Small nucleolar RNA SNORA55: a 118-nucleotide sequence from Ardeotis kori. Gene Ontology terms of the family: nucleolus and RNA processing. The source organism's lineage runs through Eukaryota, Euteleostomi, Neognathae, Otidiformes and Ardeotis. ACA55 is a member of the H/ACA class of snoRNA that guide the sites of modification of uridines to pseudouridines.
[Rfam]
RNA sequence: GCACCUGCAUCUUUCCUGUUCCUUGCUGUGCAGUGCAGGUCUGGGGACAGCUGGUGCUACAUCCAGAUGGGUUGCUUUCCCCUGGUUUGGAACUCAUUUCUACAUCUCUGCAACAUUU
Numbered sequence: 001g002c003a004c005c006u007g008c009a010u011c012u013u014u015c016c017u018g019u020u021c022c023u024u025g026c027u028g029u030g031c032a033g034u035g036c037a038g039g040u041c042u043g044g045g046g047a048c049a050g051c052u053g054g055u056g057c058u059a060c061a062u063c064c065a066g067a068u069g070g071g072u073u074g075c076u077u078u079c080c081c082c083u084g085g086u087u088u089g090g091a092a093c094u095c096a097u098u099u100c101u102a103c104a105u106c107u108c109u110g111c112a113a114c115a116u117u118u
Stems, first nucleotide, its partner, number of pairs: 001057005013047006021039002065099008079090002
Dot-bracket structure: (((((.......((((((..((...............))..)))))).....))))).......((((((((......((........)).))))))))...................